This 143-nucleotide RNA from Rhizobium sp. PDO1-076 belongs to the Rfam family "Alphaproteobacterial sRNA ar35". Rfam classes the family as a small RNA.
[Rfam]
RNA sequence: CAUCGGACUGCUUAUGAGCGCUGGAAGUUUCUGUCGCUCGCAGUCUGGAUGUCGCCUUAGACUUUUGACCACGGAUGUACUGGCACUGGUGAGUAGGCGAUAAUGAGGAAGGUCGGUGCGAUUUCGCCCCGGCCUUUUUUGUU
Numbered sequence: 001c002a003u004c005g006g007a008c009u010g011c012u013u014a015u016g017a018g019c020g021c022u023g024g025a026a027g028u029u030u031c032u033g034u035c036g037c038u039c040g041c042a043g044u045c046u047g048g049a050u051g052u053c054g055c056c057u058u059a060g061a062c063u064u065u066u067g068a069c070c071a072c073g074g075a076u077g078u079a080c081u082g083g084c085a086c087u088g089g090u091g092a093g094u095a096g097g098c099g100a101u102a103a104u105g106a107g108g109a110a111g112g113u114c115g116g117u118g119c120g121a122u123u124u125c126g127c128c129c130c131g132g133c134c135u136u137u138u139u140u141g142u143u
Base pairs, nucleotide, nucleotide: 003048004047005046006045007044008043009042016039017038018037019036020035051101052100053099054098055097056096057095061090062089063088066085067084069083070082071081103142104141105140106139107138108137109136110135111134112133113132114131115130116129118127119126120125
Background:
The source organism's lineage runs through Bacteria, Pseudomonadati, Pseudomonadota, Rhizobiaceae and Rhizobium.